RNA sequence: CCGGCUCCGGUUCACCCCGCUGUUCGCGGGGACCCGGCGCU
Numbered sequence: 001c002c003g004g005c006u007c008c009g010g011u012u013c014a015c016c017c018c019g020c021u022g023u024u025c026g027c028g029g030g031g032a033c034c035c036g037g038c039g040c041u
Stems, first nucleotide, its partner, number of pairs: 003041003007037004015031006

About this RNA: Shown here is a 41-nucleotide RNA sequence from Saccharomonospora piscinae, a member of the family "L31-Actinobacteria ribosomal protein leader". Rfam classes the family as a cis-regulatory leader. Clan: Ribosomal Protein L31 Leader clan. The sequence is in the family's curated seed alignment.